This 91-nucleotide sequence from a Betaproteobacteria bacterium belongs to the Rfam family "Selenocysteine transfer RNA". Clan: tRNA clan. For this family Rfam cites "Eukaryotic selenocysteine tRNA has the 9/4 secondary structure" (Mizutani and Goto, FEBS Lett, 2000).
[Rfam]
RNA sequence: GGAAGAGAAGCGUCCCCGGUGGGGUGGCCGGACUUCAAACCCGGUGGGGGCCGUUGACGGUCCUUUGUGGGUUCGACUCCCACUCUCUUCC
Number, nucleotide and partner (000 for none) at each position: 001g091002g090003a089004a088005g087006a086007g085008a084009a000010g000011c026012g025013u024014c023015c022016c021017c000018g000019g000020u000021g016022g015023g014024g013025u012026g011027g045028c044029c043030g042031g041032a000033c000034u000035u000036c000037a000038a000039a000040c000041c031042c030043g029044g028045u027046g000047g064048g063049g062050g061051c060052c000053g000054u000055u000056g000057a000058c000059g000060g051061u050062c049063c048064u047065u000066u000067g000068u082069g081070g080071g079072u000073u000074c000075g000076a000077c000078u000079c071080c070081c069082a068083c000084u008085c007086u006087c005088u004089u003090c002091c001